[Rfam]
RNA sequence: UGUAACUAAAACAAUGAAAGCCCUGCCUCUCUUCCAUCCUUGCGGCUCCGAAGACCGCGCCAGUGUGAAUCAGAUUACCUAUCACGUA
Numbered sequence: 001u002g003u004a005a006c007u008a009a010a011a012c013a014a015u016g017a018a019a020g021c022c023c024u025g026c027c028u029c030u031c032u033u034c035c036a037u038c039c040u041u042g043c044g045g046c047u048c049c050g051a052a053g054a055c056c057g058c059g060c061c062a063g064u065g066u067g068a069a070u071c072a073g074a075u076u077a078c079c080u081a082u083c084a085c086g087u088a
Stems, first nucleotide, its partner, number of pairs: 035067002039063002041059005047053001
Annotation: The record is an 88-nucleotide RNA sequence from Paenibacillus validus, which matches "BsrC" in Rfam. By type it is a small RNA. The match comes from Rfam's covariance-model search (83 bits).